Description:
A member of the RNA family "tRNA" from Rhodotorula graminis, 92 nucleotides long. The organism belongs to Rhodotorula graminis, within Eukaryota. Rfam links the family to the GO term triplet codon-amino acid adaptor activity.

[Rfam]
RNA sequence: GGCCAGAUGCCCGAGCGGUUAAGGGGAUAGACUCGAAUCUCUUCGCCAUCUAUUAGGCUUUGCCUGCGCAGGUUCAAGUCCUGCUCUGGUCG
Numbered sequence: 001g002g003c004c005a006g007a008u009g010c011c012c013g014a015g016c017g018g019u020u021a022a023g024g025g026g027a028u029a030g031a032c033u034c035g036a037a038u039c040u041c042u043u044c045g046c047c048a049u050c051u052a053u054u055a056g057g058c059u060u061u062g063c064c065u066g067c068g069c070a071g072g073u074u075c076a077a078g079u080c081c082u083g084c085u086c087u088g089g090u091c092g
Base pairs, nucleotide, nucleotide: 001091002090003089004088005087006086007085010025011024012023027053028052029051030050031049068084069083070082071081072080